The record is a 137-nucleotide RNA sequence from Paenisporosarcina cavernae, which matches "PyrR binding site" in Rfam.
A reference for the family is Bonner et al. (2001), "Molecular recognition of pyr mRNA by the Bacillus subtilis attenuation regulatory protein PyrR", Nucleic Acids Res.
Pairs were carried over by alignment from the consensus structure, which is taken from published work.
The family's RNA type in Rfam is cis-regulatory element.
It scores 61 bits against the family's covariance model.
Lineage of the source: Bacteria > Bacillati > Bacilli > Caryophanaceae > Paenisporosarcina.

[Rfam]
RNA sequence: UAUCCCUUUAAAGACAGUCCCGAGAGGCUGGGAAGGAACGAGUGUAAAAAUAGUACCCGAGAGGUUCUGUUUUCGCUGCUUUGUAUACAUUUUCUGUAUGUAUAUCCCCCAGUCUACUAGGCUGGGGGAUUUUUUUA
Numbered sequence: 001u002a003u004c005c006c007u008u009u010a011a012a013g014a015c016a017g018u019c020c021c022g023a024g025a026g027g028c029u030g031g032g033a034a035g036g037a038a039c040g041a042g043u044g045u046a047a048a049a050a051u052a053g054u055a056c057c058c059g060a061g062a063g064g065u066u067c068u069g070u071u072u073u074c075g076c077u078g079c080u081u082u083g084u085a086u087a088c089a090u091u092u093u094c095u096g097u098a099u100g101u102a103u104a105u106c107c108c109c110c111a112g113u114c115u116a117c118u119a120g121g122c123u124g125g126g127g128g129a130u131u132u133u134u135u136u137a
Base pairs, nucleotide, nucleotide: 003038005036006035007034008033009032015030016029017028018027019026044076045075047073048072049071050070051069052068053067055065056064057063102132104130105129106128107127108126109125110124111123112122113121114120115119